The record is a 372-nucleotide RNA, which matches "Bacterial RNase P class A" in Rfam.
The match comes from Rfam's covariance-model search (308 bits).

RNA sequence: CAAGCGGGCUGGGUGGCCGCGUCCCUUUUGGGAUGAGGAAAGUCCGAGCUCCACAGGGCAAAAUGCUGGGUAACACCCAGGCGGGGCGACCCGAUGGAAAGUGCCACAGAGAACAGACCGCCAGCGGGCGCGAUGAUUCGCGCAGCGGGCAAGGGUGAAACGGUGGGGUAAGAGCCCACCGCGCGACUCGGCGACGAGCGCGGCACGGUAAACCCCAUUUGGAGCAAGGCCGAAUAGGAGCGGAGAGACGGCCCGUCUCGCUAUUACGUUCGGGUAGGCUGCAAGAGGCGUCGGGUAACCGGCGUCCCAGAUAAAUGGCCAUCCGUUUGGGAAACCAAACGACAGAACUCGGCUUACAGGCCCGCUUGUUUA
Numbered sequence: 001c002a003a004g005c006g007g008g009c010u011g012g013g014u015g016g017c018c019g020c021g022u023c024c025c026u027u028u029u030g031g032g033a034u035g036a037g038g039a040a041a042g043u044c045c046g047a048g049c050u051c052c053a054c055a056g057g058g059c060a061a062a063a064u065g066c067u068g069g070g071u072a073a074c075a076c077c078c079a080g081g082c083g084g085g086g087c088g089a090c091c092c093g094a095u096g097g098a099a100a101g102u103g104c105c106a107c108a109g110a111g112a113a114c115a116g117a118c119c120g121c122c123a124g125c126g127g128g129c130g131c132g133a134u135g136a137u138u139c140g141c142g143c144a145g146c147g148g149g150c151a152a153g154g155g156u157g158a159a160a161c162g163g164u165g166g167g168g169u170a171a172g173a174g175c176c177c178a179c180c181g182c183g184c185g186a187c188u189c190g191g192c193g194a195c196g197a198g199c200g201c202g203g204c205a206c207g208g209u210a211a212a213c214c215c216c217a218u219u220u221g222g223a224g225c226a227a228g229g230c231c232g233a234a235u236a237g238g239a240g241c242g243g244a245g246a247g248a249c250g251g252c253c254c255g256u257c258u259c260g261c262u263a264u265u266a267c268g269u270u271c272g273g274g275u276a277g278g279c280u281g282c283a284a285g286a287g288g289c290g291u292c293g294g295g296u297a298a299c300c301g302g303c304g305u306c307c308c309a310g311a312u313a314a315a316u317g318g319c320c321a322u323c324c325g326u327u328u329g330g331g332a333a334a335c336c337a338a339a340c341g342a343c344a345g346a347a348c349u350c351g352g353c354u355u356a357c358a359g360g361c362c363c364g365c366u367u368g369u370u371u372a
Base pairs, nucleotide, nucleotide: 001368002367003366004365005364006363007362008361009360010359011357012323013322014321015320016319017318018317020035021034022033023032024031025030040355041354042353044352045351046350047349048348049224050223051222052221056258057257058256059255061220062219063218064217065216066080067079068078069077070076081095082093083092084091085090096215097214101213102212103209104208105207118154119153120150121149122148124146125145127143162180163179164178165177166176167175181204182202183201184200185199187198188197189196190195228280229279230278231277238271239270240269241268242267250262251261252260287306288305289304290303291302292301293300294299

Rfam links the family to the GO terms tRNA processing, ribonuclease P activity and dimeric ribonuclease P complex.